[Rfam]
RNA sequence: AUGAACAACCAACGGAAAAAGACGGCUCGACCGUCUUUCAAUAUG
Numbered sequence: 001a002u003g004a005a006c007a008a009c010c011a012a013c014g015g016a017a018a019a020a021g022a023c024g025g026c027u028c029g030a031c032c033g034u035c036u037u038u039c040a041a042u043a044u045g
Stems, first nucleotide, its partner, number of pairs: 018038001020036006
Description:
Rfam assigns this 45-nucleotide sequence from Orthoflavivirus denguei to the family "Flavivirus capsid hairpin cHP". It is one of the family's seed sequences. NCBI's taxonomy places the organism under Viruses, Flasuviricetes, Flaviviridae, Orthoflavivirus denguei, Dengue virus. cHP is a conserved RNA hairpin structure identified within the capsid coding region of several Flavivirus genomes. Rfam links the family to the GO term translational initiation. For this family Rfam cites "RNA secondary structure in the coding region of dengue virus type 2 directs translation start codon selection and is required for viral replication" (Clyde and Harris, J Virol, 2006). Clan: Flavivirus 5' UTR clan. The base pairs follow the family's consensus structure, which is taken from published work.